[Rfam]
RNA sequence: CACUUGUUAGUAAGAUGUUUCUUAUUAAAAAUGUUUGAACAUACGAACUCCAUAGUGGAUUUAGUGCAUUACUGAGAUGAGCU
Numbered sequence: 001c002a003c004u005u006g007u008u009a010g011u012a013a014g015a016u017g018u019u020u021c022u023u024a025u026u027a028a029a030a031a032u033g034u035u036u037g038a039a040c041a042u043a044c045g046a047a048c049u050c051c052a053u054a055g056u057g058g059a060u061u062u063a064g065u066g067c068a069u070u071a072c073u074g075a076g077a078u079g080a081g082c083u
Base pairs, nucleotide, nucleotide: 003081004080005079006078007077008076

Rfam assigns this 83-nucleotide sequence from Pluvianellus socialis to the family "Small nucleolar RNA SNORD72". The family has 16 seed sequences and 726 matches in Rfam 15.1. The literature on the family includes a 2001 paper in EMBO J by Huttenhofer et al., "RNomics: an experimental approach that identifies 201 candidates for novel, small, non-messenger RNAs in mouse". Pairs were carried over by alignment from the consensus structure. snoRNA HBII-240 belongs to the CD family of snoRNAs. It is the human orthologue of the mouse MBII-240 and is predicted to guide 2'O-ribose methylation of the large 28S rRNA at residue U4590. The organism belongs to Pluvianellus, within Eukaryota. By type it is a C/D-box small nucleolar RNA.